[Rfam]
RNA sequence: CUCAGCCUUUGGGGGGCCAUAGCAGAAACGUUCAUGCCGCAGCCCCUGUCAGGUAAUACCUGAUAAUACCUGUGAAUUCUGCU
Numbered sequence: 001c002u003c004a005g006c007c008u009u010u011g012g013g014g015g016g017c018c019a020u021a022g023c024a025g026a027a028a029c030g031u032u033c034a035u036g037c038c039g040c041a042g043c044c045c046c047u048g049u050c051a052g053g054u055a056a057u058a059c060c061u062g063a064u065a066a067u068a069c070c071u072g073u074g075a076a077u078u079c080u081g082c083u
Stems, first nucleotide, its partner, number of pairs: 013046005021083007029039002050072006